Alphaproteobacterial ar14: a 122-nucleotide RNA sequence from Pararhizobium antarcticum. The pairing is the family consensus, mapped onto this sequence.
RNA sequence: GACAGAGCUUGCAGCCCACUCCUCCUCCCAGGGCUGCUUGCACAAGCAGCGGCGCUCCUCCUCCUAGUCGCUGCUUCGAUAUUGAAAGCCUGCCGCACCUCCUCCCGCGGCAGGCUUUUUUC
Numbered sequence: 001g002a003c004a005g006a007g008c009u010u011g012c013a014g015c016c017c018a019c020u021c022c023u024c025c026u027c028c029c030a031g032g033g034c035u036g037c038u039u040g041c042a043c044a045a046g047c048a049g050c051g052g053c054g055c056u057c058c059u060c061c062u063c064c065u066a067g068u069c070g071c072u073g074c075u076u077c078g079a080u081a082u083u084g085a086a087a088g089c090c091u092g093c094c095g096c097a098c099c100u101c102c103u104c105c106c107g108c109g110g111c112a113g114g115c116u117u118u119u120u121u122c
Base pairs, nucleotide, nucleotide: 007041008040011037012036013035014034015033016032017031044076045075046074047073048072049071050070051069052068053067086117087116088115089114090113091112092111093110094109095108096107
About the family: Smr14C2 was renamed NfeR1 (Nodule Formation Efficiency RNA) highly expressed in salt stress and during the symbiotic interaction on legume roots.
Rfam classes the family as a small RNA.